[Rfam]
RNA sequence: GAGUCUAACGAUUAUGCAAGUAUUUGAGUCAACCCCCAAAUGCGCAAUGAAAGUAAUUGGUCAACCCUACCCUCCUGUCCUAAAGGGCGGGAGAGGAAGCAUAAUUAUUAGGACCCGAAAGAUGGUGAACUAUACCUGGAUAGGGUGAAGCCAGAGGAAACUCUGGUGGAAGCUCGUAGCGGUUCUGACGUGCAAAUCGAUCGUCAAAUCUGGGUAUAGGGGCGAAAGACUAAUCGAACCAUCUAGUAGCUGGUU
Numbered sequence: 001g002a003g004u005c006u007a008a009c010g011a012u013u014a015u016g017c018a019a020g021u022a023u024u025u026g027a028g029u030c031a032a033c034c035c036c037c038a039a040a041u042g043c044g045c046a047a048u049g050a051a052a053g054u055a056a057u058u059g060g061u062c063a064a065c066c067c068u069a070c071c072c073u074c075c076u077g078u079c080c081u082a083a084a085g086g087g088c089g090g091g092a093g094a095g096g097a098a099g100c101a102u103a104a105u106u107a108u109u110a111g112g113a114c115c116c117g118a119a120a121g122a123u124g125g126u127g128a129a130c131u132a133u134a135c136c137u138g139g140a141u142a143g144g145g146u147g148a149a150g151c152c153a154g155a156g157g158a159a160a161c162u163c164u165g166g167u168g169g170a171a172g173c174u175c176g177u178a179g180c181g182g183u184u185c186u187g188a189c190g191u192g193c194a195a196a197u198c199g200a201u202c203g204u205c206a207a208a209u210c211u212g213g214g215u216a217u218a219g220g221g222g223c224g225a226a227a228g229a230c231u232a233a234u235c236g237a238a239c240c241a242u243c244u245a246g247u248a249g250c251u252g253g254u255u
Stems, first nucleotide, its partner, number of pairs: 005111004010106008020043003025038002028035001047054002059066002072093004079086002114253002117250001121243006130219011141207001143175004150167007179204004184200002187198002221231002